This 98-nucleotide RNA from Cephalotus follicularis belongs to the Rfam family "Small nucleolar RNA snoR31/Z110/Z27". The organism belongs to Cephalotus, within Eukaryota. Rfam links the family to the GO terms RNA processing and nucleolus. It is annotated as a C/D-box small nucleolar RNA. This family contains several related snoRNAs including R31, Z27 and Z110. For this family Rfam cites "Identification of 66 box C/D snoRNAs in Arabidopsis thaliana: extensive gene duplications generated multiple isoforms predicting new ribosomal RNA 2'-O-methylation sites" (Barneche et al., J Mol Biol, 2001).
RNA sequence: ACCAUCAUGUGAUGAAAAGUUGGAAAAAUCUUAGGACACCUUCCUACACAGUUAUCUAUUGCUGUGGAUGAGAAUAAUAAUUCCAUUCUGAUGAUGAU
Number, nucleotide and partner (000 for none) at each position: 001a098002c000003c096004a095005u094006c093007a092008u000009g000010u000011g000012a000013u000014g000015a000016a000017a000018a000019g000020u000021u000022g000023g000024a000025a000026a000027a000028a000029u000030c000031u000032u000033a000034g000035g000036a000037c000038a000039c000040c000041u000042u000043c000044c051045u050046a000047c000048a000049c000050a045051g044052u000053u000054a000055u000056c000057u000058a000059u000060u000061g000062c000063u000064g000065u000066g000067g000068a000069u000070g000071a000072g000073a000074a000075u000076a000077a000078u000079a000080a000081u000082u000083c000084c000085a000086u000087u000088c000089u000090g000091a000092u007093g006094a005095u004096g003097a000098u001